[Rfam]
RNA sequence: GCGGAGCACCCGCCAUGCCGGGUGACGCUAUGGCGCCGGACGAACCCCAAACCUGGGCUGGGGAGCAACAUCGGC
Numbered sequence: 001g002c003g004g005a006g007c008a009c010c011c012g013c014c015a016u017g018c019c020g021g022g023u024g025a026c027g028c029u030a031u032g033g034c035g036c037c038g039g040a041c042g043a044a045c046c047c048c049a050a051a052c053c054u055g056g057g058c059u060g061g062g063g064a065g066c067a068a069c070a071u072c073g074g075c
Stems, first nucleotide, its partner, number of pairs: 001028003008023005035075005045063005
Burkholderiales-2 RNA: a 75-nucleotide RNA. The base pairs follow the family's consensus structure, which is taken from published work. Rfam classes the family as a cis-regulatory element.